RNA: mir-3492 microRNA precursor family
Organism: Schistosoma curassoni
RNA sequence: AGCUUUCUGAAUCCAUGCUGAGAUUUCGCCAGACACCAACCCAUUACGGUUGAUCAGACUUCCAAGAUAAGUGAAGUU
Numbered sequence: 001a002g003c004u005u006u007c008u009g010a011a012u013c014c015a016u017g018c019u020g021a022g023a024u025u026u027c028g029c030c031a032g033a034c035a036c037c038a039a040c041c042c043a044u045u046a047c048g049g050u051u052g053a054u055c056a057g058a059c060u061u062c063c064a065a066g067a068u069a070a071g072u073g074a075a076g077u078u
Stems, first nucleotide, its partner, number of pairs: 002077005008071001011068003016064002020061003024058003028054001030052001